[Rfam]
The record is a 70-nucleotide sequence, which matches "skipping-rope RNA" in Rfam. By type it is a small RNA.
RNA sequence: GGGCCGUGAGGACGGAAAGGCUUCCGUCGCCUGAGUGGAAAUCCAGAUAGUUGCCGACCUGGCACGGUUC
Numbered sequence: 001g002g003g004c005c006g007u008g009a010g011g012a013c014g015g016a017a018a019g020g021c022u023u024c025c026g027u028c029g030c031c032u033g034a035g036u037g038g039a040a041a042u043c044c045a046g047a048u049a050g051u052u053g054c055c056g057a058c059c060u061g062g063c064a065c066g067g068u069u070c
Stems, first nucleotide, its partner, number of pairs: 001070008011028005019055003030038001043062004
Rfam's curators put it in the seed alignment.